The family of this 228-nucleotide RNA sequence from Nakamurella panacisegetis is "Actinobacteria sRNA Ms_IGR-5".
The source organism's lineage runs through Bacteria, Actinomycetota, Actinomycetes, Nakamurellales and Nakamurella.
Pairs were carried over by alignment from the consensus structure.
It is annotated as a small RNA.
On this family, see Li et al., RNA 2013: "Identification of small RNAs in Mycobacterium smegmatis using heterologous Hfq".
[Rfam]
RNA sequence: GAACCCGGAAGGAGGUGGUCCCACGUUGAUGACGUACAGGACUCGUGAGGUGGCUGGCCGCUAGGCCGCCGUCCCAAGACGUCGGACCGUUGUCCGUUCCCCAUCGGGGACGGCGGUCAGGCAAGUAGUGGACAGUCACCCGAUUCCCGGGCCGCCGACCAUCGUCCAGUCGGCCCUUGCAUCGCGACGUAGCGUCAGGUGCGAGGAGCAGCCCGGGUUUCGUACUCC
Numbered sequence: 001g002a003a004c005c006c007g008g009a010a011g012g013a014g015g016u017g018g019u020c021c022c023a024c025g026u027u028g029a030u031g032a033c034g035u036a037c038a039g040g041a042c043u044c045g046u047g048a049g050g051u052g053g054c055u056g057g058c059c060g061c062u063a064g065g066c067c068g069c070c071g072u073c074c075c076a077a078g079a080c081g082u083c084g085g086a087c088c089g090u091u092g093u094c095c096g097u098u099c100c101c102c103a104u105c106g107g108g109g110a111c112g113g114c115g116g117u118c119a120g121g122c123a124a125g126u127a128g129u130g131g132a133c134a135g136u137c138a139c140c141c142g143a144u145u146c147c148c149g150g151g152c153c154g155c156c157g158a159c160c161a162u163c164g165u166c167c168a169g170u171c172g173g174c175c176c177u178u179g180c181a182u183c184g185c186g187a188c189g190u191a192g193c194g195u196c197a198g199g200u201g202c203g204a205g206g207a208g209c210a211g212c213c214c215g216g217g218u219u220u221c222g223u224a225c226u227c228c
Base pairs, nucleotide, nucleotide: 014058016056017055018054019053060122061121062120064118066116068114069113070112071111073109074108075107141222142221143220146217147216148215149214150213151212152211154174155173156172157171158170159169